[Rfam]
RNA sequence: AAUCUUGAGCCGCUGAAUUCUGCGCGCAGAAGCGGGGGAACCAACGAGACCGCAAGCUCCUUUCGGUCUCCGGGGUGAAUCGACCGGCACGGCCGGCCGUAGGGCGACUUUCGCGCCCGAAUCCGUCAGCUAACCUCGCAAGCGUCCGAUGGAAGGAUUU
Number, nucleotide and partner (000 for none) at each position: 001a000002a000003u000004c000005u000006u000007g000008a000009g000010c000011c144012g143013c142014u141015g000016a000017a000018u031019u030020c029021u000022g000023c000024g000025c000026g000027c000028a000029g020030a019031a018032g139033c138034g137035g136036g135037g134038g000039a000040a000041c000042c072043a000044a000045c000046g000047a000048g000049a000050c000051c000052g000053c000054a000055a000056g000057c000058u000059c000060c000061u000062u000063u000064c000065g000066g000067u000068c000069u000070c000071c000072g042073g124074g123075g122076u000077g000078a000079a000080u000081c099082g098083a000084c096085c000086g000087g000088c000089a000090c000091g000092g000093c000094c000095g000096g084097c000098c082099g081100u000101a000102g118103g117104g116105c115106g000107a000108c000109u000110u000111u000112c000113g000114c000115g105116c104117c103118c102119g000120a000121a000122u075123c074124c073125g000126u000127c000128a000129g000130c000131u000132a000133a000134c037135c036136u035137c034138g033139c032140a000141a014142g013143c012144g011145u000146c000147c000148g000149a000150u000151g000152g000153a000154a000155g000156g000157a000158u000159u000160u000
Shown here is a 160-nucleotide RNA sequence from Cohnella zeiphila, a member of the family "c-di-AMP riboswitch aptamer (ydaO/yuaA leader)". A search with the family's covariance model found it, with a score of 91 bits.